[Rfam]
RNA sequence: AUGGAGGCGAUGAUCCUUUCCCCAGCUGAUCAACUAAGAUUAUAAAUGCGCGUUUUGUUUAGAUCUCCUUUUUCAACAUAGGAGGUUUUCUAAGCCAGUACUCUGAUCCAU
Numbered sequence: 001a002u003g004g005a006g007g008c009g010a011u012g013a014u015c016c017u018u019u020c021c022c023c024a025g026c027u028g029a030u031c032a033a034c035u036a037a038g039a040u041u042a043u044a045a046a047u048g049c050g051c052g053u054u055u056u057g058u059u060u061a062g063a064u065c066u067c068c069u070u071u072u073u074c075a076a077c078a079u080a081g082g083a084g085g086u087u088u089u090c091u092a093a094g095c096c097a098g099u100a101c102u103c104u105g106a107u108c109c110a111u
Stems, first nucleotide, its partner, number of pairs: 001111005
Notes:
A member of the RNA family "Small nucleolar RNA Z103" from Papaver somniferum, 111 nucleotides long. Its family is annotated with RNA processing and nucleolus in the Gene Ontology. A reference for the family is Chen et al. (2003), "The high diversity of snoRNAs in plants: identification and comparative study of 120 snoRNA genes from Oryza sativa", Nucleic Acids Res.